Shown here is a 73-nucleotide sequence from Mycoplasma capricolum, a member of the family "tRNA". The family's consensus secondary structure is taken from published work. On this family, see Hou, Trends Biochem Sci 1993: "The tertiary structure of tRNA and the development of the genetic code". NCBI's taxonomy places the organism under Bacteria, Mycoplasmatota, Mycoplasmatales, Mycoplasmataceae, Mycoplasma. Gene Ontology term of the family: triplet codon-amino acid adaptor activity. About the family: Transfer RNA (tRNA) molecules are approximately 80 nucleotides in length. Their secondary structure includes four short double-helical elements and three loops (D, anti-codon, and T loops). Further hydrogen bonds mediate the characteristic L-shaped molecular structure. tRNAs have two regions of fundamental functional importance: the anti-codon, which is responsible for specific mRNA codon recognition, and the 3' end, to which the tRNAs corresponding amino acid is attached (by aminoacyl-tRNA synthetases). tRNAs cope with the degeneracy of the genetic code in two manners: having more than one tRNA (with a specific anti-codon) for a particular amino acid; and 'wobble' base-pairing, i.e. permitting non-standard base-pairing at the 3rd anti-codon position.
RNA sequence: GCUGACUUAGCUCAGCAGGCAGAGCAACUGACUUGUAAUCAGUAGGUCGUAGGUUCGAUUCCUAUAGUCAGCA
Numbered sequence: 001g002c003u004g005a006c007u008u009a010g011c012u013c014a015g016c017a018g019g020c021a022g023a024g025c026a027a028c029u030g031a032c033u034u035g036u037a038a039u040c041a042g043u044a045g046g047u048c049g050u051a052g053g054u055u056c057g058a059u060u061c062c063u064a065u066a067g068u069c070a071g072c073a
Stems, first nucleotide, its partner, number of pairs: 001072007010025004027043005049065005